[Rfam]
RNA: Makes More Granules Regulator RNA (mmgR)
RNA sequence: CAGGCGUGCCUUUCAGGCAUCCUCUCCUAAAAACUUUCAGGGCCGGUCCACGUGACCGGCCCCUUUUUUUGUCCGUU
Number, nucleotide and partner (000 for none) at each position: 001c000002a000003g000004g000005c000006g000007u000008g018009c017010c016011u015012u000013u000014c000015a011016g010017g009018c008019a000020u000021c000022c000023u000024c000025u000026c000027c000028u000029a000030a000031a000032a000033a000034c000035u000036u000037u000038c000039a000040g062041g061042g060043c059044c058045g057046g056047u055048c054049c000050a000051c000052g000053u000054g048055a047056c046057c045058g044059g043060c042061c041062c040063c000064u000065u000066u000067u000068u000069u000070u000071g000072u000073c000074c000075g000076u000077u000